[Rfam]
RNA: S. aureus tsr24 small RNA
Organism: Staphylococcus epidermidis
RNA sequence: UCUUUAUACAUAAGGCACCUCGUUAAUUUUGUUUAUUGGUAUUUAUUAAAUUAUGUGAAAGGUCCUUAUUUUUCAAAGUAUUUUAAUGUAAAAUUACAUAUAAACUCAAAGUAUUUUGGCGAGACUCUUGAGGGAACAGGACAAGCUGAAGACUACAGGCUGAAGCUGUCCCCUAAGAAAGCGAGCCAACAAAACGAAGUAUUGUAAAUAAAGAAGCCAGUAA
Numbered sequence: 001u002c003u004u005u006a007u008a009c010a011u012a013a014g015g016c017a018c019c020u021c022g023u024u025a026a027u028u029u030u031g032u033u034u035a036u037u038g039g040u041a042u043u044u045a046u047u048a049a050a051u052u053a054u055g056u057g058a059a060a061g062g063u064c065c066u067u068a069u070u071u072u073u074c075a076a077a078g079u080a081u082u083u084u085a086a087u088g089u090a091a092a093a094u095u096a097c098a099u100a101u102a103a104a105c106u107c108a109a110a111g112u113a114u115u116u117u118g119g120c121g122a123g124a125c126u127c128u129u130g131a132g133g134g135a136a137c138a139g140g141a142c143a144a145g146c147u148g149a150a151g152a153c154u155a156c157a158g159g160c161u162g163a164a165g166c167u168g169u170c171c172c173c174u175a176a177g178a179a180a181g182c183g184a185g186c187c188a189a190c191a192a193a194a195c196g197a198a199g200u201a202u203u204g205u206a207a208a209u210a211a212a213g214a215a216g217c218c219a220g221u222a223a
Base pairs, nucleotide, nucleotide: 003208004207005206006205007204021038022037024035025034026033039064042061043060044059046058047057048056050054079201080200081199082198083197084196088097089096090095099108111195112194114192115191116189117188118187119186120185126178127177128176129175131174132173133172134171136169137168139166144161145160146159147158